Rfam assigns this 174-nucleotide RNA sequence from Haladaptatus litoreus to the family "Sense overlapping transcript RNA 0042 (sot)". Lineage of the source: Archaea > Methanobacteriati > Halobacteria > Halobacteriales > Haladaptatus. On this family, see Gomes-Filho et al., RNA Biol 2015: "Sense overlapping transcripts in IS1341-type transposase genes are functional non-coding RNAs in archaea". About the family: It is associated with IS1341-type transposase (tnpB) genes, at the 3'-end in H. salinarum NRC-1. The tetraloop structural motif may be functional. The family's RNA type in Rfam is small RNA. Pairs were carried over by alignment from the consensus structure, which was predicted with RNAfold.

[Rfam]
RNA sequence: AAGUAACUCCGAGUCUCGUCUGCGAUGGAGGAGAUAGGAGUACCGGCUGGUUGGCACAGCCAGCGGUUCACUUGUUCGACCGUAGUGAGGGCUGUUUCGCUCCACGAGAACAGGUUGGUAACCGCGAACCCUAAUAUCCCAACUCGGGGGAUUCCCGCGUCUUUAGGCGCGGGA
Numbered sequence: 001a002a003g004u005a006a007c008u009c010c011g012a013g014u015c016u017c018g019u020c021u022g023c024g025a026u027g028g029a030g031g032a033g034a035u036a037g038g039a040g041u042a043c044c045g046g047c048u049g050g051u052u053g054g055c056a057c058a059g060c061c062a063g064c065g066g067u068u069c070a071c072u073u074g075u076u077c078g079a080c081c082g083u084a085g086u087g088a089g090g091g092c093u094g095u096u097u098c099g100c101u102c103c104a105c106g107a108g109a110a111c112a113g114g115u116u117g118g119u120a121a122c123c124g125c126g127a128a129c130c131c132u133a134a135u136a137u138c139c140c141a142a143c144u145c146g147g148g149g150g151a152u153u154c155c156c157g158c159g160u161c162u163u164u165a166g167g168c169g170c171g172g173g174a
Stems, first nucleotide, its partner, number of pairs: 003044001007040004013035003016031002019028002045061005064124005069117001071114007089102004137151004143147001153174009